[Rfam]
RNA sequence: CCCGCAGCAGGACGGAAAGACCCCAUGGAGCUUUACUGCAGCUUGAUAUUGAGUUUCGGCAUUGCACGUACAGGAUAGGUGGGAGACUGAGAAUUCAGUACGCCAGUAUUGGAGGAGUCACCGUUGGGAUACCACCCUUGUAAUGUUGGAAUUCUAACCUGGUACCGUAACCCGGUAUGGGGACAGUGUCUGGCGGGCAGUUUGACUGGGGCGGUCGCCUCCUAAAGAGUAACGGAGGCGCCCAAAGGUUCCCUCAGUGCGGACGGAAAUCGCACGGAGAGUGUAAAGGCAGAAGGGAGCCUGACUGCGAGACAAACAGGUCGAGCAGGGACGAAAGUCGGGCUUAGUGAUCCGGUGGUACCGAGUGGAAGGGCCAUCGCUCAACGGAUAAAAGCUACCCUGGGGAUAACAGGCUGAUACCCCCCAAGAGUCCACAUCGACGGGGGUGUUUGGCACCUCGAUGUCGGCUCGUCUCAUCCUGGGGCUGAAGUAGGUCCCAAGGGUUGGGCUGUUCGCCCAUUAAAGAGGUACGCGAGCUGGGUUCAGAACGUCGUGAGACAGUUCGGUCCCUAUCCGCUGUGGGCGCA
Numbered sequence: 001c002c003c004g005c006a007g008c009a010g011g012a013c014g015g016a017a018a019g020a021c022c023c024c025a026u027g028g029a030g031c032u033u034u035a036c037u038g039c040a041g042c043u044u045g046a047u048a049u050u051g052a053g054u055u056u057c058g059g060c061a062u063u064g065c066a067c068g069u070a071c072a073g074g075a076u077a078g079g080u081g082g083g084a085g086a087c088u089g090a091g092a093a094u095u096c097a098g099u100a101c102g103c104c105a106g107u108a109u110u111g112g113a114g115g116a117g118u119c120a121c122c123g124u125u126g127g128g129a130u131a132c133c134a135c136c137c138u139u140g141u142a143a144u145g146u147u148g149g150a151a152u153u154c155u156a157a158c159c160u161g162g163u164a165c166c167g168u169a170a171c172c173c174g175g176u177a178u179g180g181g182g183a184c185a186g187u188g189u190c191u192g193g194c195g196g197g198c199a200g201u202u203u204g205a206c207u208g209g210g211g212c213g214g215u216c217g218c219c220u221c222c223u224a225a226a227g228a229g230u231a232a233c234g235g236a237g238g239c240g241c242c243c244a245a246a247g248g249u250u251c252c253c254u255c256a257g258u259g260c261g262g263a264c265g266g267a268a269a270u271c272g273c274a275c276g277g278a279g280a281g282u283g284u285a286a287a288g289g290c291a292g293a294a295g296g297g298a299g300c301c302u303g304a305c306u307g308c309g310a311g312a313c314a315a316a317c318a319g320g321u322c323g324a325g326c327a328g329g330g331a332c333g334a335a336a337g338u339c340g341g342g343c344u345u346a347g348u349g350a351u352c353c354g355g356u357g358g359u360a361c362c363g364a365g366u367g368g369a370a371g372g373g374c375c376a377u378c379g380c381u382c383a384a385c386g387g388a389u390a391a392a393a394g395c396u397a398c399c400c401u402g403g404g405g406a407u408a409a410c411a412g413g414c415u416g417a418u419a420c421c422c423c424c425c426a427a428g429a430g431u432c433c434a435c436a437u438c439g440a441c442g443g444g445g446g447u448g449u450u451u452g453g454c455a456c457c458u459c460g461a462u463g464u465c466g467g468c469u470c471g472u473c474u475c476a477u478c479c480u481g482g483g484g485c486u487g488a489a490g491u492a493g494g495u496c497c498c499a500a501g502g503g504u505u506g507g508g509c510u511g512u513u514c515g516c517c518c519a520u521u522a523a524a525g526a527g528g529u530a531c532g533c534g535a536g537c538u539g540g541g542u543u544c545a546g547a548a549c550g551u552c553g554u555g556a557g558a559c560a561g562u563u564c565g566g567u568c569c570c571u572a573u574c575c576g577c578u579g580u581g582g583g584c585g586c587a
Base pairs, nucleotide, nucleotide: 001583002582003581004580005579006578007577008576010575011574012573014570015569022404023403024402025401027400028399029396030395031394032393033392035201036200037199038198042193043192045190046189047188048187051154052153053152054151055150056149057148058147059146060145061144062143063142064141065140066139068137078136079135080134081133082132085119086118087117094113095112096111097110098109099108100107101106158181159180160179162178163177164176165175166174167173204216205215206214207213217239218238219237220236221235222234240385242342243341248300249299250298251297252296253295254280255279257275258274259273260272261271262270281290282289305328306327307326308325311322312321313320330339331338332337353379354378355377356376357375358374359373361372362371413454414453415452417451418448419447420446421445422444423443424442428438429437465540466538467537468536469535470532471529472528473527474526475525478503479502481498482497483496484495485494486493505519506518507517508516509515546564547563548562549561550559551558552557

Notes
The family of this 587-nucleotide part of an RNA from Zhenpiania hominis is "Bacterial large subunit ribosomal RNA". The source organism's lineage runs through Bacteria, Bacillati, Bacillota, Peptostreptococcales and Zhenpiania. It scores 2866 bits against the family's covariance model.